[Rfam]
RNA sequence: CCUGAUGUUCCGUCAUCAGUAGCCUACCGACACAUGCAGGACUGGUAACGGUUUUGUGUGAAGCUGCCGGGACAACGAAAUCGGGUCUACGGACCAUGCUGACACCGUGAGGUAAAGCACUGCCUACAAGCAUCAUAUGGGCACGGAG
Numbered sequence: 001c002c003u004g005a006u007g008u009u010c011c012g013u014c015a016u017c018a019g020u021a022g023c024c025u026a027c028c029g030a031c032a033c034a035u036g037c038a039g040g041a042c043u044g045g046u047a048a049c050g051g052u053u054u055u056g057u058g059u060g061a062a063g064c065u066g067c068c069g070g071g072a073c074a075a076c077g078a079a080a081u082c083g084g085g086u087c088u089a090c091g092g093a094c095c096a097u098g099c100u101g102a103c104a105c106c107g108u109g110a111g112g113u114a115a116a117g118c119a120c121u122g123c124c125u126a127c128a129a130g131c132a133u134c135a136u137a138u139g140g141g142c143a144c145g146g147a148g
Stems, first nucleotide, its partner, number of pairs: 002019006028069002031066002033060012083095002086092002097119004105112002123141004128136001
RNA: Group II catalytic intron D1-D4-7
Organism: Acerihabitans arboris